[Rfam]
Shown here is a 102-nucleotide RNA sequence from Azotobacter chroococcum, a member of the family "Pseudomon-Rho RNA".
RNA sequence: UUCGGCUCUCGCAGCGAAUUUACCGCUGUCCUCCGUCAGUCGUCGCCGACGCACCUCUUUAGAAUAAGUACAGCGAUCCGAUCGCCUUCCCUGCGGCGCGGC
Numbered sequence: 001u002u003c004g005g006c007u008c009u010c011g012c013a014g015c016g017a018a019u020u021u022a023c024c025g026c027u028g029u030c031c032u033c034c035g036u037c038a039g040u041c042g043u044c045g046c047c048g049a050c051g052c053a054c055c056u057c058u059u060u061a062g063a064a065u066a067a068g069u070a071c072a073g074c075g076a077u078c079c080g081a082u083c084g085c086c087u088u089c090c091c092u093g094c095g096g097c098g099c100g101g102c
Base pairs, nucleotide, nucleotide: 011029012028013027014026015025016024039102040101041100042099044098045097046096047095048094073085074084075083076082077081
By type it is a cis-regulatory element. A search with the family's covariance model found it, with a score of 84 bits. The source organism's lineage runs through Bacteria, Pseudomonadati, Pseudomonadales, Azotobacter and Azotobacter chroococcum.